Shown here is a 51-nucleotide RNA from Rhinopithecus bieti, a member of the family "mir-3193 microRNA precursor family". The organism belongs to Rhinopithecus, within Eukaryota. The family has 2 seed sequences and 24 matches in Rfam 15.1. Rfam links the family to the GO terms RISC complex and miRNA-mediated post-transcriptional gene silencing.
RNA sequence: UCCUGUGUAGGAUCUGAGGAGUGGAAUCUCAUUCCCCAGCUCCUGAGCAGA
Numbered sequence: 001u002c003c004u005g006u007g008u009a010g011g012a013u014c015u016g017a018g019g020a021g022u023g024g025a026a027u028c029u030c031a032u033u034c035c036c037c038a039g040c041u042c043c044u045g046a047g048c049a050g051a
Stems, first nucleotide, its partner, number of pairs: 003050004008045005014039003018036002020033004024028001